[Rfam]
Description
The record is a 106-nucleotide RNA from Paenirhodobacter hankyongi, which matches "Guanidine-I riboswitch aptamer" in Rfam. This family represents a conserved RNA structure found upstream of the ykkC and yxkD genes in Bacillus subtilis and related genes in other bacteria. The function of this family is unclear although it has been suggested that it may function to switch on efflux pumps and detoxification systems in response to harmful environmental molecules. Taxonomically the source falls in Paenirhodobacter (Bacteria, Pseudomonadati, Alphaproteobacteria, Rhodobacterales). It scores 77 bits against the family's covariance model. Rfam links the family to the GO term regulation of gene expression.

RNA sequence: AGAGUUGGCGGCUAGGGUUCCGGCAGAGAUGCGUCUGGUCCGAGAGCUGCCACCGGCGGGGGAGACAUCCCCGUUCGGCGCACGGCGGGAUAAAAACCCGGGAGAC
Numbered sequence: 001a002g003a004g005u006u007g008g009c010g011g012c013u014a015g016g017g018u019u020c021c022g023g024c025a026g027a028g029a030u031g032c033g034u035c036u037g038g039u040c041c042g043a044g045a046g047c048u049g050c051c052a053c054c055g056g057c058g059g060g061g062g063a064g065a066c067a068u069c070c071c072c073g074u075u076c077g078g079c080g081c082a083c084g085g086c087g088g089g090a091u092a093a094a095a096a097c098c099c100g101g102g103a104g105a106c
Stems, first nucleotide, its partner, number of pairs: 007051006015041002020038002022035001023032003053078004057073005081101001083104001087099003